[Rfam]
RNA sequence: CUCCCCGAAAUAGCUUUAGGGCUAGCCUCGGGGGAUAAGCAGUGGCUGUAAAGCACUGAUUGGGCUAGGGGGCUUACCCGCUUACCAAACCCUGUCAAACUCUGAAGGCUACUGUUCGAGACCCCGGGAGUCAGUCUGCGUGAGCUAACUUUCGCAGACGAGAGGAAAACAACCCAGACCGCCAGCUAAGGUCCCGAAGUCAGCGCUAAGUGGAGAAGGAUGUGAAGACGCCGAGACAGCUAGGAGGUUGGCUUAGAAGCAGCCAUUCCUUUAAAGAGUGCGUAAUAGCUCACUAGUCGAGUGUCUUUGCGCCGAAGAUGAUCGGGGCUAAGCGCUGCACCGAAGCUGCGGCAUUGUUGGAGGUAUGAUCUGUCAAUUGACAGAUGAUAUUUGCCACCGAUGGGUAGGGGAGCGUUCCGUAGGCUGUUGAAGCGUGACCGGAAGGACACGUGGAGGCAUCGGAAGUGCGAAU
Numbered sequence: 001c002u003c004c005c006c007g008a009a010a011u012a013g014c015u016u017u018a019g020g021g022c023u024a025g026c027c028u029c030g031g032g033g034g035a036u037a038a039g040c041a042g043u044g045g046c047u048g049u050a051a052a053g054c055a056c057u058g059a060u061u062g063g064g065c066u067a068g069g070g071g072g073c074u075u076a077c078c079c080g081c082u083u084a085c086c087a088a089a090c091c092c093u094g095u096c097a098a099a100c101u102c103u104g105a106a107g108g109c110u111a112c113u114g115u116u117c118g119a120g121a122c123c124c125c126g127g128g129a130g131u132c133a134g135u136c137u138g139c140g141u142g143a144g145c146u147a148a149c150u151u152u153c154g155c156a157g158a159c160g161a162g163a164g165g166a167a168a169a170c171a172a173c174c175c176a177g178a179c180c181g182c183c184a185g186c187u188a189a190g191g192u193c194c195c196g197a198a199g200u201c202a203g204c205g206c207u208a209a210g211u212g213g214a215g216a217a218g219g220a221u222g223u224g225a226a227g228a229c230g231c232c233g234a235g236a237c238a239g240c241u242a243g244g245a246g247g248u249u250g251g252c253u254u255a256g257a258a259g260c261a262g263c264c265a266u267u268c269c270u271u272u273a274a275a276g277a278g279u280g281c282g283u284a285a286u287a288g289c290u291c292a293c294u295a296g297u298c299g300a301g302u303g304u305c306u307u308u309g310c311g312c313c314g315a316a317g318a319u320g321a322u323c324g325g326g327g328c329u330a331a332g333c334g335c336u337g338c339a340c341c342g343a344a345g346c347u348g349c350g351g352c353a354u355u356g357u358u359g360g361a362g363g364u365a366u367g368a369u370c371u372g373u374c375a376a377u378u379g380a381c382a383g384a385u386g387a388u389a390u391u392u393g394c395c396a397c398c399g400a401u402g403g404g405u406a407g408g409g410g411a412g413c414g415u416u417c418c419g420u421a422g423g424c425u426g427u428u429g430a431a432g433c434g435u436g437a438c439c440g441g442a443a444g445g446a447c448a449c450g451u452g453g454a455g456g457c458a459u460c461g462g463a464a465g466u467g468c469g470a471a472u
Base pairs, nucleotide, nucleotide: 001412002411003410004409005408006407011024012023013022014021015020026130027128028127029126030125031124032123033122036121038116039115040114041113042112043111044110045109046108051103052101053100057097058096059095062092063091064090068086069085070083071082072081073080134159135158136157137156138155139154140153142151143150164175165174179351180350181349182348184347185346186345190341191340192339199338201337202336203335204334205333206332218313219312222310223309224308225307226306227305228304229303230302231301239297240296241295242294243293245270246269247268250264251263252262271275276291280289281288352402353401354400355399356398358396359395413467415464416463417462418461419460423457424456425455432451433450434449435448436447438445439444
Rfam assigns this 472-nucleotide part of an RNA from Truepera radiovictrix to the family "Bacterial large subunit ribosomal RNA". The source organism's lineage runs through Bacteria, Deinococcota, Trueperaceae, Truepera and Truepera radiovictrix. On this family, see Yusupov et al., Science 2001: "Crystal structure of the ribosome at 5.5 A resolution". It is one of the family's seed sequences.